mir-633 microRNA precursor family: an 85-nucleotide RNA sequence from Papio anubis.
A search with the family's covariance model found it, with a score of 90 bits.
NCBI's taxonomy places the organism under Eukaryota, Opisthokonta, Euarchontoglires, Cercopithecidae, Papio.
Rfam links the family to the GO terms miRNA-mediated post-transcriptional gene silencing and RISC complex.

RNA sequence: GCCUCUGUUUCUUUACUGUGGUAGAUACUAUUAGCCUUCUUAUUUUAGGCUAAUAGUAUCUACCACAAUAAAAUUGUUGUGAUGA
Numbered sequence: 001g002c003c004u005c006u007g008u009u010u011c012u013u014u015a016c017u018g019u020g021g022u023a024g025a026u027a028c029u030a031u032u033a034g035c036c037u038u039c040u041u042a043u044u045u046u047a048g049g050c051u052a053a054u055a056g057u058a059u060c061u062a063c064c065a066c067a068a069u070a071a072a073a074u075u076g077u078u079g080u081g082a083u084g085a
Stems, first nucleotide, its partner, number of pairs: 002084001004082002012072004017067021